[Rfam]
Rfam assigns this 99-nucleotide RNA sequence from Vogesella sp. LIG4 to the family "Glycine riboswitch aptamer".
This family represents the bacterial glycine riboswitch.
RNA sequence: AUCAGGCAGACAGGAGAGAUCGCCCGGACAGCAGUCCAGCGGCGGCGCCGAAGGGGAAUCGCCCCGAAAACUCUCAGGCAAAAGGACUGUCUGCCCAGG
Numbered sequence: 001a002u003c004a005g006g007c008a009g010a011c012a013g014g015a016g017a018g019a020u021c022g023c024c025c026g027g028a029c030a031g032c033a034g035u036c037c038a039g040c041g042g043c044g045g046c047g048c049c050g051a052a053g054g055g056g057a058a059u060c061g062c063c064c065c066g067a068a069a070a071c072u073c074u075c076a077g078g079c080a081a082a083a084g085g086a087c088u089g090u091c092u093g094c095c096c097a098g099g
Stems, first nucleotide, its partner, number of pairs: 006094008020045004047079003050075002054073003060066002